[Rfam]
Description: Rfam assigns this 100-nucleotide RNA sequence from Pseudomonas putida to the family "Pseudomon-Rho RNA". The organism belongs to Pseudomonas putida, within Bacteria. By type it is a cis-regulatory element.
Nucleotides: 100
Base pairs, nucleotide, nucleotide: 010027011026012025013024014023015022037100038099039098040097042096043095044094045093046092072084073083074082075081076080
Number, partner (000 for none) and nucleotide at each position: 001000u002000u003000c004000g005000g006000c007000c008000u009000c010027g011026c012025a013024c014023u015022g016000c017000u018000u019000u020000u021000c022015c023014a024013g025012u026011g027010c028000c029000c030000u031000c032000u033000a034000c035000a036000u037100g038099c039098c040097g041000u042096c043095g044094c045093c046092g047000a048000a049000g050000c051000a052000u053000c054000c055000c056000u057000a058000a059000u060000u061000c062000g063000a064000a065000u066000c067000a068000g069000u070000a071000c072084g073083c074082g075081a076080u077000c078000c079000u080076g081075u082074c083073g084072c085000c086000a087000u088000c089000c090000a091000g092046c093045g094044g095043c096042g097040c098039g099038g100037c